[Rfam]
RNA sequence: GCGCGCACGCUGCCGGACCGUCAAGGCAGUCCGGCCAAAGCGCCUUGGAAUCUGGUCGAGCCGCUGGGCCACAAGCCCACCGAAAGGCGCAACAGGGAUAUCGGCAGACGCAUCUGCAGUGAUCUCGCGCAGUUUGCCCGCUGAAAUCUCGGCGGGCCGACGUGAUCCGCUCGGCGCCCCU
Numbered sequence: 001g002c003g004c005g006c007a008c009g010c011u012g013c014c015g016g017a018c019c020g021u022c023a024a025g026g027c028a029g030u031c032c033g034g035c036c037a038a039a040g041c042g043c044c045u046u047g048g049a050a051u052c053u054g055g056u057c058g059a060g061c062c063g064c065u066g067g068g069c070c071a072c073a074a075g076c077c078c079a080c081c082g083a084a085a086g087g088c089g090c091a092a093c094a095g096g097g098a099u100a101u102c103g104g105c106a107g108a109c110g111c112a113u114c115u116g117c118a119g120u121g122a123u124c125u126c127g128c129g130c131a132g133u134u135u136g137c138c139c140g141c142u143g144a145a146a147u148c149u150c151g152g153c154g155g156g157c158c159g160a161c162g163u164g165a166u167c168c169g170c171u172c173g174g175c176g177c178c179c180c181u
Stems, first nucleotide, its partner, number of pairs: 004042003012035007020027002056174006062082002065079005087130004095126004101122002104117005133160002136157009
This 181-nucleotide RNA sequence from Comamonas suwonensis belongs to the Rfam family "RT-15 RNA". The family's consensus secondary structure is taken from published work. The source organism's lineage runs through Bacteria, Pseudomonadota, Betaproteobacteria, Burkholderiales and Comamonas.